[Rfam]
RNA sequence: AUCCGAAAAAGGCAAACUUAUCGAAAGGUAAGGACGCAAAGCUAUGGACCUAAGGCUGUCUGACGACAGUGAAGGCAGCCAAGCCGCCAGA
Numbered sequence: 001a002u003c004c005g006a007a008a009a010a011g012g013c014a015a016a017c018u019u020a021u022c023g024a025a026a027g028g029u030a031a032g033g034a035c036g037c038a039a040a041g042c043u044a045u046g047g048a049c050c051u052a053a054g055g056c057u058g059u060c061u062g063a064c065g066a067c068a069g070u071g072a073a074g075g076c077a078g079c080c081a082a083g084c085c086g087c088c089a090g091a
Base pairs, nucleotide, nucleotide: 012037013036017032018031019030020029021028022027041084042083043082045081046080047079049075050074055070056069057068058067059066060065
RNA: c-di-GMP-I riboswitch aptamer
Organism: Paenibacillus sp. NEAU-GSW1